[Rfam]
RNA: Archaeal signal recognition particle RNA
RNA sequence: AAGCGGACUAGCCCGGGUGGUUAGGCGUCACCUCCACCGCAAACCGUCUUCAGCGGGGGCGAGAAAGCCGGGAAGGCUCCUGACGGCGGGAGGGUCCGAGGAGCCGACGUAGAAGCCUCGUCCCACGAGGGCAGAGGUGACGUGUCGACACCCGGAGGGGUGUACGCCACGUCUUGACGGCGGGCACCGGGUCAGGCGCGGAAGCGAGCAUCCCACCCGUCGACAUCUGUCGCCCGUGGGGUCGCGGGGUGGAGGAGGCUCGUCGGGUAGCCCCCCUGUCCCGACGGAGACGACCCGGUCGUCCGCGU
Dot-bracket structure: (.((((((..(((((((((((.....)))))))...((((............))))))))......((((((..(.(((.(...((((((.((((((((.(((((..(.(....(((((((((((((.((((((.((.((((((.((((((((....)))))).)).)))))).)..(((((((....(((.....(((....))).....))).))))))).)..))))).).))))))...))))))).).)..))))).)))))...))).))))))...).).)).)..)))))).)))))).)